[Rfam]
RNA sequence: GCAAGGGUGACCGAGCGUGGGAAGGAAGCGUGGAAAGAAACCGUGAGCCGAUGAACAAGAAUCAGAUACGAGGCGCGAUGGAUCAAGGCGAGCAGGCACGUCACUGUAAAGCUUUUGUGGUCAAUGUGAAAUUGCGUAGAUCUGGCGGUUGUGCGGGGAAGGAUUGCGUUC
Numbered sequence: 001g002c003a004a005g006g007g008u009g010a011c012c013g014a015g016c017g018u019g020g021g022a023a024g025g026a027a028g029c030g031u032g033g034a035a036a037g038a039a040a041c042c043g044u045g046a047g048c049c050g051a052u053g054a055a056c057a058a059g060a061a062u063c064a065g066a067u068a069c070g071a072g073g074c075g076c077g078a079u080g081g082a083u084c085a086a087g088g089c090g091a092g093c094a095g096g097c098a099c100g101u102c103a104c105u106g107u108a109a110a111g112c113u114u115u116u117g118u119g120g121u122c123a124a125u126g127u128g129a130a131a132u133u134g135c136g137u138a139g140a141u142c143u144g145g146c147g148g149u150u151g152u153g154c155g156g157g158g159a160a161g162g163a164u165u166g167c168g169u170u171c
Base pairs, nucleotide, nucleotide: 001016002015005012006011028171030169031168032167035164041156042155043154044153045152046150047149048148049147050146062145063144064143065142066141067140073137074136075135077133078132079131083129084128085127086114087113088112089111092107093106094105095104
A member of the RNA family "Group II catalytic intron D1-D4-3" from Polaromonas sp. JS666, 171 nucleotides long.
Rfam's curators write: Group II introns are found in rRNA, tRNA and mRNA of organelles in fungi, plants and protists, and also in mRNA in bacteria.